[Rfam]
RNA: mir-172 microRNA precursor family
Organism: Ensete ventricosum
RNA sequence: GUAUCUGCCGAUGCAGCAUCAUCAAGAUUCUCACAUCUCUCAUAUUCCAUGCCUAUCUUCUGAGGUCUUUAGUCUCCUCAGACAGCGAUGGAGUUCUUUGAUAAGAGCUUGUGAAUCUUGAUGAUGCUGCACCAGCAAAUAG
Numbered sequence: 001g002u003a004u005c006u007g008c009c010g011a012u013g014c015a016g017c018a019u020c021a022u023c024a025a026g027a028u029u030c031u032c033a034c035a036u037c038u039c040u041c042a043u044a045u046u047c048c049a050u051g052c053c054u055a056u057c058u059u060c061u062g063a064g065g066u067c068u069u070u071a072g073u074c075u076c077c078u079c080a081g082a083c084a085g086c087g088a089u090g091g092a093g094u095u096c097u098u099u100g101a102u103a104a105g106a107g108c109u110u111g112u113g114a115a116u117c118u119u120g121a122u123g124a125u126g127c128u129g130c131a132c133c134a135g136c137a138a139a140u141a142g
Base pairs, nucleotide, nucleotide: 010133012131013130014129015128016127017126018125019124020123021122022121023120024119025118026117027116028115029114030113032111033110